RNA sequence: GCUCCAUUCGUCUAGAGGCCUAGGACACCGCCCUUUCACGGCGGUAACAGGGGUUCGAAUCCCCUAUGGAGUG
Dot-bracket structure: (((((((..((((.........)))).(((((.......)))))....(((((.......)))))))))))).
The record is a 73-nucleotide RNA sequence from Moraxella bovoculi, which matches "tRNA" in Rfam. The family's RNA type in Rfam is transfer RNA.